[Rfam]
RNA sequence: AAGUGAAAUAUCUCGCUGCGCUCGAUGUGAAAUAAUUUGCGCGAGCGCAAAUUGUGAAAUAUUGCUCCUGCGUCGCAAUGUGAAAUAAAAU
Numbered sequence: 001a002a003g004u005g006a007a008a009u010a011u012c013u014c015g016c017u018g019c020g021c022u023c024g025a026u027g028u029g030a031a032a033u034a035a036u037u038u039g040c041g042c043g044a045g046c047g048c049a050a051a052u053u054g055u056g057a058a059a060u061a062u063u064g065c066u067c068c069u070g071c072g073u074c075g076c077a078a079u080g081u082g083a084a085a086u087a088a089a090a091u
Stems, first nucleotide, its partner, number of pairs: 008028005015021001032055010059081007